Rfam assigns this 91-nucleotide sequence from Methyloglobulus morosus to the family "c-di-GMP-I-GGC riboswitch aptamer".
RNA sequence: GUGCAAAAAGCCAAACCCGUUGUGAAGCGGGGGCGGAAAACUUCGGGUCUUGAGACUUUUUAAAGUAGCCAAGACAGCCGGGUUGCCACUC
Numbered sequence: 001g002u003g004c005a006a007a008a009a010g011c012c013a014a015a016c017c018c019g020u021u022g023u024g025a026a027g028c029g030g031g032g033g034c035g036g037a038a039a040a041c042u043u044c045g046g047g048u049c050u051u052g053a054g055a056c057u058u059u060u061u062a063a064a065g066u067a068g069c070c071a072a073g074a075c076a077g078c079c080g081g082g083u084u085g086c087c088a089c090u091c
Stems, first nucleotide, its partner, number of pairs: 001091001011036002016031006034077001039084004044080003047075006